The family of this 324-nucleotide RNA from Eptatretus burgeri is "Metazoan signal recognition particle RNA".
It scores 139 bits against the family's covariance model.
The family has 91 seed sequences and 383,523 matches in Rfam 15.1.
Its Rfam clan is "SRP clan".
The organism belongs to Eptatretus, within Eukaryota.

RNA sequence: GCCGGAUGAGGAUGGAUCACCUGCUCUACACCUCGCUAUGUCGAUUGGGCAUCCGCACCAAGCUCGGCAUAGACAUUGUGAGCUGGAUGAGGACGGAUCACCUGCUCUACACCUCGCUAUAUCGAUUGGGCGUCCGCACCAAGCUCAGCAUAGACAUGGUGAGCCGGGGGUAGUCCCGCGCUCUCCAGGUCCCCUAAGGAGGGAUGAACCAACCCAGGCUGGUAACGGAGCAGGUCAAAGUCCCUGUGUUGAUCGGUGGUGGUACAGCACCCAUGAAUAGAAGGUGUAGGGCAGCCCGGUAUCAUGGCGAAACCCAAUCCUUUU
Numbered sequence: 001g002c003c004g005g006a007u008g009a010g011g012a013u014g015g016a017u018c019a020c021c022u023g024c025u026c027u028a029c030a031c032c033u034c035g036c037u038a039u040g041u042c043g044a045u046u047g048g049g050c051a052u053c054c055g056c057a058c059c060a061a062g063c064u065c066g067g068c069a070u071a072g073a074c075a076u077u078g079u080g081a082g083c084u085g086g087a088u089g090a091g092g093a094c095g096g097a098u099c100a101c102c103u104g105c106u107c108u109a110c111a112c113c114u115c116g117c118u119a120u121a122u123c124g125a126u127u128g129g130g131c132g133u134c135c136g137c138a139c140c141a142a143g144c145u146c147a148g149c150a151u152a153g154a155c156a157u158g159g160u161g162a163g164c165c166g167g168g169g170g171u172a173g174u175c176c177c178g179c180g181c182u183c184u185c186c187a188g189g190u191c192c193c194c195u196a197a198g199g200a201g202g203g204a205u206g207a208a209c210c211a212a213c214c215c216a217g218g219c220u221g222g223u224a225a226c227g228g229a230g231c232a233g234g235u236c237a238a239a240g241u242c243c244c245u246g247u248g249u250u251g252a253u254c255g256g257u258g259g260u261g262g263u264a265c266a267g268c269a270c271c272c273a274u275g276a277a278u279a280g281a282a283g284g285u286g287u288a289g290g291g292c293a294g295c296c297c298g299g300u301a302u303c304a305u306g307g308c309g310a311a312a313c314c315c316a317a318u319c320c321u322u323u324u
Base pairs, nucleotide, nucleotide: 001068002067003066004022005021007019008018009017071322072321075318076317077316078315080313084310086308088306089303090302092300094298095297096296102294103293104292105291106290107289108288109287110286111285112284113283114282117280118279119278120277122275127273128272129271130270132268133267135262137261138260139259140258141257143254145252146251147250148249149248150247151246153191154190155189157187158186159185161183162182163181164180165178166177167176168175169174193199194198200245201244202243203242204241205240212235213234214233219228220227221226